Manganese Mn2+ riboswitch aptamer (yybP-ykoY): a 144-nucleotide sequence from Bacillus sp. FJAT-50079. Its family is annotated with manganese ion binding in the Gene Ontology. The match comes from Rfam's covariance-model search (48 bits).

RNA sequence: CAUUUUGUCAAAGGGGAGUAGCGUUAGGUGUGAUCAAUCGAUCCACCUGAAACAAAGUCGUCAUUUCGUGAAUUUAUUUCACCGGCUUUGUUGACAAGAACUUUGUCUAGCAAGACCUUUGCCUAUUACGGCAAGGGUCUUUUU
Numbered sequence: 001c002a003u004u005u006u007g008u009c010a011a012a013g014g015g016g017a018g019u020a021g022c023g024u025u026a027g028g029u030g031u032g033a034u035c036a037a038u039c040g041a042u043c044c045a046c047c048u049g050a051a052a053c054a055a056a057g058u059c060g061u062c063a064u065u066u067c068g069u070g071a072a073u074u075u076a077u078u079u080c081a082c083c084g085g086c087u088u089u090g091u092u093g094a095c096a097a098g099a100a101c102u103u104u105g106u107c108u109a110g111c112a113a114g115a116c117c118u119u120u121g122c123c124u125a126u127u128a129c130g131g132c133a134a135g136g137g138u139c140u141u142u143u144u
Base pairs, nucleotide, nucleotide: 026048027047028046029045030044051092052091053090054089055088056087057086058085059084060083068082069081070080071079072078097143098142099141